[Rfam]
RNA: Actinobacteria sRNA Ms_IGR-5
RNA sequence: ACACGGGAAGGAGGUGGUCCGAUAAAUGAGUGACAUACGGACGAGUGAGGUGGCGGCGGCCUAGCCGUUCGACCAGGACGCGGCGUGAUCCGCCCGGUCGAGAGGCCGGCUAAUCCACAGCCAACACCCGAACCCGCGAGUGCCGGACCGUCCAUCCGGCCGACCGCACAGCUCCACCGGAGCCCGGUUGACAAGCUCGCGGGUUUGUCCAU
Numbered sequence: 001a002c003a004c005g006g007g008a009a010g011g012a013g014g015u016g017g018u019c020c021g022a023u024a025a026a027u028g029a030g031u032g033a034c035a036u037a038c039g040g041a042c043g044a045g046u047g048a049g050g051u052g053g054c055g056g057c058g059g060c061c062u063a064g065c066c067g068u069u070c071g072a073c074c075a076g077g078a079c080g081c082g083g084c085g086u087g088a089u090c091c092g093c094c095c096g097g098u099c100g101a102g103a104g105g106c107c108g109g110c111u112a113a114u115c116c117a118c119a120g121c122c123a124a125c126a127c128c129c130g131a132a133c134c135c136g137c138g139a140g141u142g143c144c145g146g147a148c149c150g151u152c153c154a155u156c157c158g159g160c161c162g163a164c165c166g167c168a169c170a171g172c173u174c175c176a177c178c179g180g181a182g183c184c185c186g187g188u189u190g191a192c193a194a195g196c197u198c199g200c201g202g203g204u205u206u207g208u209c210c211a212u
Stems, first nucleotide, its partner, number of pairs: 014057002017054002059111001061109002064106002068102003072098003129207013142160006